[Rfam]
RNA sequence: CAAGCGGCAGCGCUGAAUUCCUCCUGCGGAGGAAACGGGGGACCCAACUCUCGGGGUGAAACGACAUCCGUCGUGGGGCGCCUUUCCGCCCUAACCCGUCAGCUAACCUCGUAAGCGCACGGAAAGGGGACGA
Numbered sequence: 001c002a003a004g005c006g007g008c009a010g011c012g013c014u015g016a017a018u019u020c021c022u023c024c025u026g027c028g029g030a031g032g033a034a035a036c037g038g039g040g041g042a043c044c045c046a047a048c049u050c051u052c053g054g055g056g057u058g059a060a061a062c063g064a065c066a067u068c069c070g071u072c073g074u075g076g077g078g079c080g081c082c083u084u085u086c087c088g089c090c091c092u093a094a095c096c097c098g099u100c101a102g103c104u105a106a107c108c109u110c111g112u113a114a115g116c117g118c119a120c121g122g123a124a125a126g127g128g129g130a131c132g133a
Base pairs, nucleotide, nucleotide: 011117012116013115014114018034019033020032021031022030035112036111037110038109039108040107045053054097055096056095062073063072064071065070076091077090078089079088